[Rfam]
RNA sequence: GAGAGUGGAAGGGCGGCUGCCGCUGGCGAACCCUUCGCCGGUGUGGAAAGUCCCCCCACCUCUGGACACGCAGACACCUCUCUCUGGUGUAGGGCGAGAGCUCUGGCUCUGGCACAGAAACGAGACUGCACCUCGCCAACGCCAUGAUGCCGAAAGGCUGAGGUCGCGAGGGGGGCAGAUGAAACGGCGAAACCCUGCGGGUGCAAGCCAAAAUAAGGGCGAUCGAUGGAGUCCAGCCAACGCCCGGGUAUGGCGCUGAGCUGAAUGCCGCCAAUGCCGGAAGGCACGAACAGAAGGGGGCUUACUCUCCAGACUC
Numbered sequence: 001g002a003g004a005g006u007g008g009a010a011g012g013g014c015g016g017c018u019g020c021c022g023c024u025g026g027c028g029a030a031c032c033c034u035u036c037g038c039c040g041g042u043g044u045g046g047a048a049a050g051u052c053c054c055c056c057c058a059c060c061u062c063u064g065g066a067c068a069c070g071c072a073g074a075c076a077c078c079u080c081u082c083u084c085u086g087g088u089g090u091a092g093g094g095c096g097a098g099a100g101c102u103c104u105g106g107c108u109c110u111g112g113c114a115c116a117g118a119a120a121c122g123a124g125a126c127u128g129c130a131c132c133u134c135g136c137c138a139a140c141g142c143c144a145u146g147a148u149g150c151c152g153a154a155a156g157g158c159u160g161a162g163g164u165c166g167c168g169a170g171g172g173g174g175g176c177a178g179a180u181g182a183a184a185c186g187g188c189g190a191a192a193c194c195c196u197g198c199g200g201g202u203g204c205a206a207g208c209c210a211a212a213a214u215a216a217g218g219g220c221g222a223u224c225g226a227u228g229g230a231g232u233c234c235a236g237c238c239a240a241c242g243c244c245c246g247g248g249u250a251u252g253g254c255g256c257u258g259a260g261c262u263g264a265a266u267g268c269c270g271c272c273a274a275u276g277c278c279g280g281a282a283g284g285c286a287c288g289a290a291c292a293g294a295a296g297g298g299g300g301c302u303u304a305c306u307c308u309c310c311a312g313a314c315u316c
Stems, first nucleotide, its partner, number of pairs: 001316003006311004010306002012272006021043009048303003052300005057203004063236001065234001069199005074090005091104005105194002110190001112188002126178003129173001131171006149158002207254004217245005